[Rfam]
RNA: TPP riboswitch aptamer (THI element)
RNA sequence: CACCCAUGACAGGGGAGCGCCGUCGAAGGGGCGCUGAGAGUGCGGGCACAGCCGCAGACCCUUGGAACCUGCUCCGGUUAGCACCGGCGAAGGGAGUUACCUGGAAUGUCCG
Numbered sequence: 001c002a003c004c005c006a007u008g009a010c011a012g013g014g015g016a017g018c019g020c021c022g023u024c025g026a027a028g029g030g031g032c033g034c035u036g037a038g039a040g041u042g043c044g045g046g047c048a049c050a051g052c053c054g055c056a057g058a059c060c061c062u063u064g065g066a067a068c069c070u071g072c073u074c075c076g077g078u079u080a081g082c083a084c085c086g087g088c089g090a091a092g093g094g095a096g097u098u099a100c101c102u103g104g105a106a107u108g109u110c111c112g
Stems, first nucleotide, its partner, number of pairs: 007099004011062004017034005041056005068093003074087004
Dot-bracket structure: ......((((((((..(((((........)))))......(((((......)))))..)))).....(((...((((......))))...)))..)))).............